[Rfam]
RNA sequence: UACCUGUGACGGGUCUUCAUCAGAAGGUCAACCGUGAUCCACGCGUGCCUCCCAUUUUCUGUCCCUUGACAGGAGCCCAGUUCGAGUCCGAUGGUGUCCAUUAUCUCACUCGCUUAGGUAACUAGCGAUGCUGGGAGGACCUAAGCAAUGAACACAACUUGACGAGGGAAGCAAUUCUGCAGUCGGGUGUUCACCAUUGGACGGCGGCGCUGGAAUACUCCGGUUUGGGGUUGGUAGGUGUGUGUGGGGUGGUUGAAUCGACUGAUAUU
Numbered sequence: 001u002a003c004c005u006g007u008g009a010c011g012g013g014u015c016u017u018c019a020u021c022a023g024a025a026g027g028u029c030a031a032c033c034g035u036g037a038u039c040c041a042c043g044c045g046u047g048c049c050u051c052c053c054a055u056u057u058u059c060u061g062u063c064c065c066u067u068g069a070c071a072g073g074a075g076c077c078c079a080g081u082u083c084g085a086g087u088c089c090g091a092u093g094g095u096g097u098c099c100a101u102u103a104u105c106u107c108a109c110u111c112g113c114u115u116a117g118g119u120a121a122c123u124a125g126c127g128a129u130g131c132u133g134g135g136a137g138g139a140c141c142u143a144a145g146c147a148a149u150g151a152a153c154a155c156a157a158c159u160u161g162a163c164g165a166g167g168g169a170a171g172c173a174a175u176u177c178u179g180c181a182g183u184c185g186g187g188u189g190u191u192c193a194c195c196a197u198u199g200g201a202c203g204g205c206g207g208c209g210c211u212g213g214a215a216u217a218c219u220c221c222g223g224u225u226u227g228g229g230g231u232u233g234g235u236a237g238g239u240g241u242g243u244g245u246g247g248g249g250u251g252g253u254u255g256a257a258u259c260g261a262c263u264g265a266u267a268u269u
Base pairs, nucleotide, nucleotide: 002014003013004012019266020265021264022263023262028256029255030254031253032252033251034250039247040246041245042244043243044242045241046240047239048238049237050236052234064229065227068225069224070223072221073220074219075218077213078212079211080210081209082207083206084205086202087201088200089199090198091197092196093195094194099137102135104133107130110128111127112126113125114124116123117122141145149193150192151191152190153189154188155187159186160185161184162183163182168177169176170175

Fungal signal recognition particle RNA: a 269-nucleotide RNA from Periconia macrospinosa. The source organism's lineage runs through Eukaryota, Pezizomycotina, dothideomyceta, Massarineae and Periconia. For this family Rfam cites "Towards the structure of the mammalian signal recognition particle" (Wild et al., Curr Opin Struct Biol, 2002). Rfam links the family to the GO terms signal recognition particle, plasma membrane targeting, SRP-dependent cotranslational protein targeting to membrane, signal sequence recognition and signal recognition particle, endoplasmic reticulum targeting. By type it is a non-coding RNA gene.